RNA sequence: GUGUCCUGACCUCAUCCUAGCUACUCCCCUCACCGGAGCUGUGGUGGUGGGGUCUGGGGGUGGACACAGAUCAACUUCUCAUGUUAGGAGGGCUGCCAAAGACGUGUGCAAGCUCUUAAAGGCAAGAGAGGACAUU
Number, nucleotide and partner (000 for none) at each position: 001g000002u066003g065004u064005c063006c062007u000008g000009a000010c059011c058012u000013c000014a000015u000016c000017c000018u000019a000020g000021c000022u000023a000024c000025u000026c052027c051028c049029c000030u047031c046032a045033c044034c000035g000036g000037a000038g000039c000040u000041g000042u000043g000044g033045u032046g031047g030048u000049g028050g000051g027052g026053u000054c000055u000056g000057g000058g011059g010060g000061u000062g006063g005064a004065c003066a002067c000068a000069g000070a000071u000072c000073a000074a000075c131076u130077u129078c128079u127080c126081a000082u000083g000084u121085u120086a000087g000088g117089a116090g115091g114092g113093c112094u111095g109096c108097c106098a105099a000100a000101g000102a000103c000104g000105u098106g097107u000108g096109c095110a000111a094112g093113c092114u091115c090116u089117u088118a000119a000120a085121g084122g000123c000124a000125a000126g080127a079128g078129a077130g076131g075132a000133c000134a000135u000136u000
RNA: Small Cajal body specific RNA 11